Plant signal recognition particle RNA: a 314-nucleotide RNA sequence from Leersia perrieri. Its Rfam clan is "SRP clan". The base pairs follow the family's consensus structure, which is taken from published work. Lineage of the source: Eukaryota > Streptophyta > commelinids > Oryzeae > Leersia.
RNA sequence: GCCGAGCCAACUAGCGAUGGCUUAUGACCCGAGCGGGGGCACUAAGGUGGUGUUGCGGAUGCCUGGAUGUUGCGCUUGGGCCUGGGCCUGUGGUCUGCAUUAAUACGGGCCCGCCCGUUCCAAGUUGCGUAGAUGUGCUUGGGCUCCUGGGCGAAAGCUCUGGGGUGUCCAUGCACCUAGAGUGGCGGGCACUGCGUGAGGCUGGUUUCACAGAGCAGCGAGUACCGCCCGCUUCCAACGGUGGGAGGAUAACGGGCGCUACAGCCCUGGUCCGCUUCCGGCCCAAGCACCUUCCAUGGCAGACCACCAUCUUU
Numbered sequence: 001g002c003c004g005a006g007c008c009a010a011c012u013a014g015c016g017a018u019g020g021c022u023u024a025u026g027a028c029c030c031g032a033g034c035g036g037g038g039g040c041a042c043u044a045a046g047g048u049g050g051u052g053u054u055g056c057g058g059a060u061g062c063c064u065g066g067a068u069g070u071u072g073c074g075c076u077u078g079g080g081c082c083u084g085g086g087c088c089u090g091u092g093g094u095c096u097g098c099a100u101u102a103a104u105a106c107g108g109g110c111c112c113g114c115c116c117g118u119u120c121c122a123a124g125u126u127g128c129g130u131a132g133a134u135g136u137g138c139u140u141g142g143g144c145u146c147c148u149g150g151g152c153g154a155a156a157g158c159u160c161u162g163g164g165g166u167g168u169c170c171a172u173g174c175a176c177c178u179a180g181a182g183u184g185g186c187g188g189g190c191a192c193u194g195c196g197u198g199a200g201g202c203u204g205g206u207u208u209c210a211c212a213g214a215g216c217a218g219c220g221a222g223u224a225c226c227g228c229c230c231g232c233u234u235c236c237a238a239c240g241g242u243g244g245g246a247g248g249a250u251a252a253c254g255g256g257c258g259c260u261a262c263a264g265c266c267c268u269g270g271u272c273c274g275c276u277u278c279c280g281g282c283c284c285a286a287g288c289a290c291c292u293u294c295c296a297u298g299g300c301a302g303a304c305c306a307c308c309a310u311c312u313u314u
Stems, first nucleotide, its partner, number of pairs: 001040003004023006011016001028037003044313009060301002062298001064296001065294003069290002074288009084273005090267001093265001095264003100261001107259001109257005115248002118246005124239004129235001131233002135176004140171005146163002149160004177182001184229005193222001195220003202213003